RNA sequence: CAUCGCUUCAGGGCGGGGUGUAAUUCCCCACCGGUGGUAAAUUGGACGGAUUUUCAAUCCUGAGCCAACAGCCCACGAGCUUAUCACGCUUAAUCGUGAUUCGCAGAUUUGGUGAAAUGCCAAAGCCGACGGUAUAGUCCGGAUGAAAGAAGACGACG
Number, nucleotide and partner (000 for none) at each position: 001c000002a000003u156004c155005g154006c152007u151008u150009c149010a000011g000012g000013g000014c000015g000016g028017g027018g026019u000020g000021u000022a000023a000024u000025u000026c018027c017028c016029c000030a138031c137032c128033g127034g076035u075036g074037g073038u000039a000040a000041a000042u000043u000044g000045g000046a000047c000048g000049g000050a000051u000052u000053u000054u000055c000056a000057a000058u000059c000060c000061u000062g000063a000064g000065c000066c000067a000068a000069c000070a000071g126072c125073c037074c036075a035076c034077g000078a000079g104080c103081u000082u000083a000084u000085c000086a000087c000088g000089c000090u000091u000092a000093a000094u000095c000096g000097u000098g000099a000100u000101u000102c000103g080104c079105a000106g000107a000108u124109u123110u122111g121112g120113u000114g000115a000116a000117a000118u000119g000120c112121c111122a110123a109124a108125g072126c071127c033128g032129a000130c141131g140132g139133u000134a000135u000136a000137g031138u030139c132140c131141g130142g000143a000144u000145g000146a000147a000148a000149g009150a008151a007152g006153a000154c005155g004156a003157c000158g000
The record is a 158-nucleotide sequence, which matches "FMN riboswitch aptamer (RFN element)" in Rfam. The match comes from Rfam's covariance-model search (107 bits). Gene Ontology term of the family: FMN binding. The base pairs follow the family's consensus structure, which is taken from published work.